This 297-nucleotide RNA from Capitella teleta belongs to the Rfam family "Arthropod 7SK RNA". It scores 48 bits against the family's covariance model. A reference for the family is Gruber et al. (2008), "Arthropod 7SK RNA", Mol Biol Evol.
RNA sequence: GGAAGCGUGUGUCCCGCCGACACGUCUGAACAUCGAUCGCUGUCUAUCCGGCAGAUCUGUCCAGGUCCGUGUCACCUCUGGUCGACACGCCGUCCAUUGCAAGGCGCCGAUGCACCCGUCGAGGGCCCGCUCGGCCGCCGCCUUCAAUGCACACAUGGUUCCUCGUGAGCCGAUUGGGUUUAAACAAGAGCAAGGUAAUUCUGGAUUAUUAGUUAACGCUAAUGGGUAGGGUUACAUCCUCUCAAUUUCUAGACGCUUCCACACUGGCACCGCAUGUGGUGGUAUGCCAUUGUUUUG
Numbered sequence: 001g002g003a004a005g006c007g008u009g010u011g012u013c014c015c016g017c018c019g020a021c022a023c024g025u026c027u028g029a030a031c032a033u034c035g036a037u038c039g040c041u042g043u044c045u046a047u048c049c050g051g052c053a054g055a056u057c058u059g060u061c062c063a064g065g066u067c068c069g070u071g072u073c074a075c076c077u078c079u080g081g082u083c084g085a086c087a088c089g090c091c092g093u094c095c096a097u098u099g100c101a102a103g104g105c106g107c108c109g110a111u112g113c114a115c116c117c118g119u120c121g122a123g124g125g126c127c128c129g130c131u132c133g134g135c136c137g138c139c140g141c142c143u144u145c146a147a148u149g150c151a152c153a154c155a156u157g158g159u160u161c162c163u164c165g166u167g168a169g170c171c172g173a174u175u176g177g178g179u180u181u182a183a184a185c186a187a188g189a190g191c192a193a194g195g196u197a198a199u200u201c202u203g204g205a206u207u208a209u210u211a212g213u214u215a216a217c218g219c220u221a222a223u224g225g226g227u228a229g230g231g232u233u234a235c236a237u238c239c240u241c242u243c244a245a246u247u248u249c250u251a252g253a254c255g256c257u258u259c260c261a262c263a264c265u266g267g268c269a270c271c272g273c274a275u276g277u278g279g280u281g282g283u284a285u286g287c288c289a290u291u292g293u294u295u296u297g
Stems, first nucleotide, its partner, number of pairs: 001260008018069001026064003030060003035057004039052004266288003269283005